[Rfam]
RNA sequence: CAACCGGGUGGCCGGAGCCCUCAGAAAACUUGGGGUACCCCCGCUGA
Dot-bracket structure: .....(((.((.......((((((.....))))))..))))).....
Rfam assigns this 47-nucleotide RNA sequence from Orthohepacivirus hominis to the family "Hepatitis C virus stem-loop I". For this family Rfam cites "The Coding Region of the HCV Genome Contains a Network of Regulatory RNA Structures" (Pirakitikulr et al., Mol Cell, 2016). The source organism's lineage runs through Viruses, Riboviria, Kitrinoviricota, Orthohepacivirus and Orthohepacivirus hominis. The base pairs follow the family's consensus structure, which was predicted with RNAfold. Its family is annotated with viral RNA genome replication in the Gene Ontology. The sequence is in the family's curated seed alignment.